The record is a 124-nucleotide sequence from Myotis myotis, which matches "Small nucleolar RNA SNORA11" in Rfam. The literature on the family includes a 2005 paper in Nucleic Acids Res by Gu et al., "A novel experimental approach for systematic identification of box H/ACA snoRNAs from eukaryotes". From the family's description: U107 (SNORA11) is a member of the H/ACA class of snoRNAs that guide the sites of modification of uridines to pseudouridines. NCBI's taxonomy places the organism under Eukaryota, Opisthokonta, Dipnotetrapodomorpha, Yangochiroptera, Myotis. By type it is an H/ACA-box small nucleolar RNA.
RNA sequence: AGGGUGUGAUCAGAGCAGGGAGCCCGAGAAUGGCUCCUCUGUUUACAACACACCCAACAGGAAGUGGGGUACCCCUCACGGGGCAGGACCCUCUGGCCUUCCUGUCACAUGACACCCUGUAGAU
Numbered sequence: 001a002g003g004g005u006g007u008g009a010u011c012a013g014a015g016c017a018g019g020g021a022g023c024c025c026g027a028g029a030a031u032g033g034c035u036c037c038u039c040u041g042u043u044u045a046c047a048a049c050a051c052a053c054c055c056a057a058c059a060g061g062a063a064g065u066g067g068g069g070u071a072c073c074c075c076u077c078a079c080g081g082g083g084c085a086g087g088a089c090c091c092u093c094u095g096g097c098c099u100u101c102c103u104g105u106c107a108c109a110u111g112a113c114a115c116c117c118u119g120u121a122g123a124u
Stems, first nucleotide, its partner, number of pairs: 002055007013044008022034003067117004078105001080099003084095004